[Rfam]
RNA sequence: GCAUUUGCAUCCCGCUCCGCCGGCCCUUAUAUUGAAGCUGCCGGCAACGGCUAUGGCGAUAAACGGCCAUCAUAAUAAACCCAUCGGACCCGGGGGCAGUACCCGGCGCCUCCACCAAUUCCCCUGUCGCGGCAGGGGCCUGCGGGGGCGAAAUAGGAUCGACGAGGGCGUAAAGGGUGUUGCUUUCGCUCGGUAUGGUACCCGCCGACAUCGGGCCAUCUUUAUAGUUGCCAACGACAACUAUGCUAAGGUUGCUCUCGCUGCGUAAUGCGGCGCGAUCGCCUGAAAUAAAGCCCUCCUGCUGUAGCAGGUAGGAGGCGGGGUUCGCAGGCACCUGGCAACAGAAGCCUGCACU
Numbered sequence: 001g002c003a004u005u006u007g008c009a010u011c012c013c014g015c016u017c018c019g020c021c022g023g024c025c026c027u028u029a030u031a032u033u034g035a036a037g038c039u040g041c042c043g044g045c046a047a048c049g050g051c052u053a054u055g056g057c058g059a060u061a062a063a064c065g066g067c068c069a070u071c072a073u074a075a076u077a078a079a080c081c082c083a084u085c086g087g088a089c090c091c092g093g094g095g096g097c098a099g100u101a102c103c104c105g106g107c108g109c110c111u112c113c114a115c116c117a118a119u120u121c122c123c124c125u126g127u128c129g130c131g132g133c134a135g136g137g138g139c140c141u142g143c144g145g146g147g148g149c150g151a152a153a154u155a156g157g158a159u160c161g162a163c164g165a166g167g168g169c170g171u172a173a174a175g176g177g178u179g180u181u182g183c184u185u186u187c188g189c190u191c192g193g194u195a196u197g198g199u200a201c202c203c204g205c206c207g208a209c210a211u212c213g214g215g216c217c218a219u220c221u222u223u224a225u226a227g228u229u230g231c232c233a234a235c236g237a238c239a240a241c242u243a244u245g246c247u248a249a250g251g252u253u254g255c256u257c258u259c260g261c262u263g264c265g266u267a268a269u270g271c272g273g274c275g276c277g278a279u280c281g282c283c284u285g286a287a288a289u290a291a292a293g294c295c296c297u298c299c300u301g302c303u304g305u306a307g308c309a310g311g312u313a314g315g316a317g318g319c320g321g322g323g324u325u326c327g328c329a330g331g332c333a334c335c336u337g338g339c340a341a342c343a344g345a346a347g348c349c350u351g352c353a354c355u
Base pairs, nucleotide, nucleotide: 040051041050042049043048055190056189057188058187059186065183068179069178070177071176080168081167082166084165085164086163090106091105092104093103094102107150108149109148110147111146112145113144191207192206193205194204196218197217198216201214202213321336322335323334324333327352328351329350330349331348332347
The family of this 355-nucleotide RNA sequence from Paradevosia tibetensis is "Alphaproteobacteria transfer-messenger RNA".
Taxonomically the source falls in Paradevosia (Bacteria, Pseudomonadota, Alphaproteobacteria, Hyphomicrobiales).
By type it is a non-coding RNA gene.
Gene Ontology term of the family: RNA catabolic process.
It scores 287 bits against the family's covariance model.
Pairs were carried over by alignment from the consensus structure, which is taken from published work.